A member of the RNA family "MIR2617 microRNA precursor family" from Medicago truncatula, 92 nucleotides long. The source organism's lineage runs through Eukaryota, Magnoliopsida, Gunneridae, Fabales and Medicago. Rfam links the family to the GO terms miRNA-mediated post-transcriptional gene silencing and RISC complex. The match comes from Rfam's covariance-model search (47 bits). Pairs were carried over by alignment from the consensus structure, which was predicted with RNAalifold.
RNA sequence: AAGUAGUGUGACAUGUCCGUUUGAGAUUUACUCAGAUUGCAUGUUUAAUUUAUUAUUUAAUUGAUUUUGGAUAACGGGGUGUUACAAACACU
Numbered sequence: 001a002a003g004u005a006g007u008g009u010g011a012c013a014u015g016u017c018c019g020u021u022u023g024a025g026a027u028u029u030a031c032u033c034a035g036a037u038u039g040c041a042u043g044u045u046u047a048a049u050u051u052a053u054u055a056u057u058u059a060a061u062u063g064a065u066u067u068u069g070g071a072u073a074a075c076g077g078g079g080u081g082u083u084a085c086a087a088a089c090a091c092u
Stems, first nucleotide, its partner, number of pairs: 005092003008085007016078006